The family of this 106-nucleotide RNA sequence from Lupinus albus is "Plant small nucleolar RNA R71". Lineage of the source: Eukaryota > Embryophyta > rosids > core genistoids > Lupinus. Its family is annotated with RNA processing and nucleolus in the Gene Ontology. Pairs were carried over by alignment from the consensus structure, which was predicted with PFOLD. A search with the family's covariance model found it, with a score of 50 bits.
[Rfam]
RNA sequence: AAUCUGAUGAUGGGGGCAGCUUGCACAUAACCUCUUGAAUCUCUUCCAAUACUCAUAUAAACUUUCUCCAUGUUGUUGCCUAAUCCCAGAAAUAUCUUUUCUGAUU
Numbered sequence: 001a002a003u004c005u006g007a008u009g010a011u012g013g014g015g016g017c018a019g020c021u022u023g024c025a026c027a028u029a030a031c032c033u034c035u036u037g038a039a040u041c042u043c044u045u046c047c048a049a050u051a052c053u054c055a056u057a058u059a060a061a062c063u064u065u066c067u068c069c070a071u072g073u074u075g076u077u078g079c080c081u082a083a084u085c086c087c088a089g090a091a092a093u094a095u096c097u098u099u100u101c102u103g104a105u106u
Base pairs, nucleotide, nucleotide: 001106003104004103007102058075059074